The family of this 92-nucleotide sequence from Pseudomonas piscis is "ivy-DE RNA". By type it is a cis-regulatory element. The organism belongs to Pseudomonas, within Bacteria. Pairs were carried over by alignment from the consensus structure, which is taken from published work. The sequence is in the family's curated seed alignment.
RNA sequence: UGACCAGGGGGCCGGGACGUUCUGAUCCACCAGAGAUCGGAGUGACCUAGGGGUACAGGGAGUGCCUCCGCGAGGGCCGGGUCAGGAAAAAG
Numbered sequence: 001u002g003a004c005c006a007g008g009g010g011g012c013c014g015g016g017a018c019g020u021u022c023u024g025a026u027c028c029a030c031c032a033g034a035g036a037u038c039g040g041a042g043u044g045a046c047c048u049a050g051g052g053g054u055a056c057a058g059g060g061a062g063u064g065c066c067u068c069c070g071c072g073a074g075g076g077c078c079g080g081g082u083c084a085g086g087a088a089a090a091a092g
Stems, first nucleotide, its partner, number of pairs: 001084005010078004014048003018044001020042008050068007